A member of the RNA family "DUF3800-VIII RNA", 67 nucleotides long. Rfam's curators write: Bacteroidetes, Cyanobacteria, Firmicutes, Planctomycetes (1 example), Proteobacteria, Tenericutes (1 example). The family's RNA type in Rfam is small RNA.

RNA sequence: AAAGUCCUGCUCCUAUGCGAAGGCCUUAGUUCCACUUUGGCGGUUUAUGUAGCAUAAGCGGGGCUUU
Numbered sequence: 001a002a003a004g005u006c007c008u009g010c011u012c013c014u015a016u017g018c019g020a021a022g023g024c025c026u027u028a029g030u031u032c033c034a035c036u037u038u039g040g041c042g043g044u045u046u047a048u049g050u051a052g053c054a055u056a057a058g059c060g061g062g063g064c065u066u067u
Stems, first nucleotide, its partner, number of pairs: 001067011016054003023041003028036003